[Rfam]
RNA sequence: UUCUUAUCAAGAGAGGUGGAGGGACUGACCCUAUGAAGCCUCGGCAACCAGCAAUAUUUGCACGGUGCCAAUUUCAGAGGAAAGAUACUUUCCAAAGAUGAGAG
Dot-bracket structure: ((((((((....(((((...(((.[[[[)))......)))))((((.((.((((...))))..))))))...(]]]].(((((.....)))))..)))))))))
Annotation
The family of this 104-nucleotide RNA sequence from Cytobacillus horneckiae is "SAM riboswitch aptamer (S box leader)". The family's consensus secondary structure is taken from published work. The source organism's lineage runs through Bacteria, Bacillota, Bacilli, Caryophanales and Cytobacillus.